[Rfam]
RNA sequence: AAUUAUUGAAGUAGAGAAUGUGCUGCUACACACCCUAUGGGUCAAAAGAAAUGUAGGAAGGGGCACACCCGCCAAUAAUU
Number, nucleotide and partner (000 for none) at each position: 001a080002a079003u078004u077005a076006u075007u074008g073009a000010a000011g029012u028013a027014g026015a000016g000017a000018a000019u000020g066021u065022g064023c063024u062025g000026c014027u013028a012029c011030a000031c048032a042033c041034c040035c039036u000037a000038u000039g035040g034041g033042u032043c000044a000045a000046a000047a000048g031049a000050a000051a000052u000053g072054u071055a000056g069057g068058a000059a000060g000061g000062g024063g023064c022065a021066c020067a000068c057069c056070c000071g054072c053073c008074a007075a006076u005077a004078a003079u002080u001

The family of this 80-nucleotide sequence from Blautia obeum is "skipping-rope RNA". It is one of the family's seed sequences. Pairs were carried over by alignment from the consensus structure, which is taken from published work. Lineage of the source: Bacteria > Bacillota > Clostridia > Lachnospirales > Blautia obeum.